[Rfam]
RNA: Small nucleolar RNA R30/Z108
RNA sequence: UUGUUUUGCAAUGAGGAUAAAAAGCUCCCUCUUCUGAAUCUAAAGCUGAGGACGCUCUGCUGGCAGAAUCGAACCAAUUAUUUAAAUUCGCCACCACUGAGCAA
Numbered sequence: 001u002u003g004u005u006u007u008g009c010a011a012u013g014a015g016g017a018u019a020a021a022a023a024g025c026u027c028c029c030u031c032u033u034c035u036g037a038a039u040c041u042a043a044a045g046c047u048g049a050g051g052a053c054g055c056u057c058u059g060c061u062g063g064c065a066g067a068a069u070c071g072a073a074c075c076a077a078u079u080a081u082u083u084a085a086a087u088u089c090g091c092c093a094c095c096a097c098u099g100a101g102c103a104a
Stems, first nucleotide, its partner, number of pairs: 006104004
Dot-bracket structure: .....((((...........................................................................................))))